[Rfam]
RNA sequence: AGGGCAAUGAUGAGUGGCGCAGGGGUACGGACCUCAGCUGAUGAUGGGAGCUGAGUGUUUGGUGUCUGAUCUCAGAUCAGUGGGCAUGUGGCUAGCUGUCUGAGAGACACCAACACGACACAGUCGCCUUGUCUGAGCCCA
Numbered sequence: 001a002g003g004g005c006a007a008u009g010a011u012g013a014g015u016g017g018c019g020c021a022g023g024g025g026u027a028c029g030g031a032c033c034u035c036a037g038c039u040g041a042u043g044a045u046g047g048g049a050g051c052u053g054a055g056u057g058u059u060u061g062g063u064g065u066c067u068g069a070u071c072u073c074a075g076a077u078c079a080g081u082g083g084g085c086a087u088g089u090g091g092c093u094a095g096c097u098g099u100c101u102g103a104g105a106g107a108c109a110c111c112a113a114c115a116c117g118a119c120a121c122a123g124u125c126g127c128c129u130u131g132u133c134u135g136a137g138c139c140c141a
Stems, first nucleotide, its partner, number of pairs: 002140004

Rfam assigns this 141-nucleotide sequence from Chanos chanos to the family "Small nucleolar RNA SNORD94".
Gene Ontology terms of the family: RNA processing and nucleolus.
It is annotated as a C/D-box small nucleolar RNA.
For this family Rfam cites "Purified box C/D snoRNPs are able to reproduce site-specific 2'-O-methylation of target RNA in vitro" (Galardi et al., Mol Cell Biol, 2002).
The organism belongs to Chanos, within Eukaryota.
The family's consensus secondary structure was predicted with RNAalifold.